[Rfam]
RNA sequence: AAUAGGUUAAUUUAUUUUCUUCAUAUAUCCUCGAAAAUAAGGUUCGAGAGUCUCUACCGGGUUACCGUAAACAACCUGACUAUGAAGGCGGAAACUUCUGUG
Numbered sequence: 001a002a003u004a005g006g007u008u009a010a011u012u013u014a015u016u017u018u019c020u021u022c023a024u025a026u027a028u029c030c031u032c033g034a035a036a037a038u039a040a041g042g043u044u045c046g047a048g049a050g051u052c053u054c055u056a057c058c059g060g061g062u063u064a065c066c067g068u069a070a071a072c073a074a075c076c077u078g079a080c081u082a083u084g085a086a087g088g089c090g091g092a093a094a095c096u097u098c099u100g101u102g
Stems, first nucleotide, its partner, number of pairs: 018088008030048006058078006
RNA: Purine riboswitch aptamer
Organism: Bacillus sp. OK048